Rfam assigns this 172-nucleotide RNA from Evansella cellulosilytica to the family "glmS glucosamine-6-phosphate activated ribozyme aptamer".
RNA sequence: AAAAACUUUAAAGCGCCUGGACUAUCUGUACGGACGGAAACACAGAUAGUUGACGAGGAGGAGGUUUAUCGAAGAUUUCGGCGGAUGCCUCCCGGUUGAAUCAUCGCAACCGAAAGCAAUUACCUAAAACGAAAAGGUGACUUUUCGAACAAAAGUAAUUGUAAUGAUGAUA
Dot-bracket structure: ...................((((((((.(............).))))))))........(((((....((((.....))))......)))))((((((........))))))...(((((((.......(((((((....)))))))........)))))))..........
Background
Rfam classes the family as a riboswitch.